[Rfam]
RNA: IMES-4 RNA motif
RNA sequence: CUUAUUACACGCAAAGGUAAUAAGCAAAUUAAAUAAGGGAAACUUUAUUUAAUUUGUAUCGGGAGGAAAUGCACGAUACA
Numbered sequence: 001c002u003u004a005u006u007a008c009a010c011g012c013a014a015a016g017g018u019a020a021u022a023a024g025c026a027a028a029u030u031a032a033a034u035a036a037g038g039g040a041a042a043c044u045u046u047a048u049u050u051a052a053u054u055u056g057u058a059u060c061g062g063g064a065g066g067a068a069a070u071g072c073a074c075g076a077u078a079c080a
Base pairs, nucleotide, nucleotide: 001024002023003022004021005020006019007018008017026055027054028053029052030051031050032049033048034047035046036045037044038043056079057078058077059076060075061074